[Rfam]
RNA sequence: UUUUUCCGUCUUACCUGAACAUUAUUUAGAUUUUCUCGCUAAAACAAAUCUAAUACUGUCAGGUAAUGACGCUAAAA
Numbered sequence: 001u002u003u004u005u006c007c008g009u010c011u012u013a014c015c016u017g018a019a020c021a022u023u024a025u026u027u028a029g030a031u032u033u034u035c036u037c038g039c040u041a042a043a044a045c046a047a048a049u050c051u052a053a054u055a056c057u058g059u060c061a062g063g064u065a066a067u068g069a070c071g072c073u074a075a076a077a
Base pairs, nucleotide, nucleotide: 001077002076003075004074007071008070009069010068011066012065013064014063015062016061017060020058021057023055024054025053026052028051029050030049
The record is a 77-nucleotide sequence from Caenorhabditis angaria, which matches "mir-236 microRNA precursor family" in Rfam.